[Rfam]
Annotation
Rfam assigns this 85-nucleotide sequence from Acer saccharum to the family "Small nucleolar RNA Z159/U59". The family is grouped with related families in Rfam's "SNORD59 clan". For this family Rfam cites "The high diversity of snoRNAs in plants: identification and comparative study of 120 snoRNA genes from Oryza sativa" (Chen et al., Nucleic Acids Res, 2003). By type it is a C/D-box small nucleolar RNA.
RNA sequence: GCCUCUGAUGAUGAUCAAAAAAUACUUUCGUUCUUCUGAGAUUAUAGUGUGCGGAAAAUUAUUUGGAGACCUGAACUGAAGAGGC
Numbered sequence: 001g002c003c004u005c006u007g008a009u010g011a012u013g014a015u016c017a018a019a020a021a022a023u024a025c026u027u028u029c030g031u032u033c034u035u036c037u038g039a040g041a042u043u044a045u046a047g048u049g050u051g052c053g054g055a056a057a058a059u060u061a062u063u064u065g066g067a068g069a070c071c072u073g074a075a076c077u078g079a080a081g082a083g084g085c
Base pairs, nucleotide, nucleotide: 003083004082005081006080
Dot-bracket structure: ..((((.........................................................................))))..